[Rfam]
RNA sequence: CCCAGGGCUUUACCCUGGGCUAUCAUCUAUCGGCCCUUCAGGCCG
Number, nucleotide and partner (000 for none) at each position: 001c019002c018003c017004a016005g015006g014007g013008c000009u000010u000011u000012a000013c007014c006015c005016u004017g003018g002019g001020c000021u000022a000023u000024c000025a000026u000027c000028u000029a000030u000031c000032g044033g043034c042035c041036c000037u000038u000039c000040a000041g035042g034043c033044c032045g000